[Rfam]
This 70-nucleotide RNA from Anabas testudineus belongs to the Rfam family "Small nucleolar RNA R38".
Pairs were carried over by alignment from the consensus structure, which was predicted with PFOLD.
Its family is annotated with RNA processing and nucleolus in the Gene Ontology.
RNA sequence: UCAAGCCAAUGAUGAUAAAAGUUAUCCCUGUCUGAACACGUGUGUGGAGUCAUGGUAACCUGAGGCUUGA
Numbered sequence: 001u002c003a004a005g006c007c008a009a010u011g012a013u014g015a016u017a018a019a020a021g022u023u024a025u026c027c028c029u030g031u032c033u034g035a036a037c038a039c040g041u042g043u044g045u046g047g048a049g050u051c052a053u054g055g056u057a058a059c060c061u062g063a064g065g066c067u068u069g070a
Base pairs, nucleotide, nucleotide: 001070002069003068004067005066006065007064
Rfam describes the family as follows. snoR38 is a C/D box small nucleolar RNA conserved across yeast, human, Arabidopsis and rice.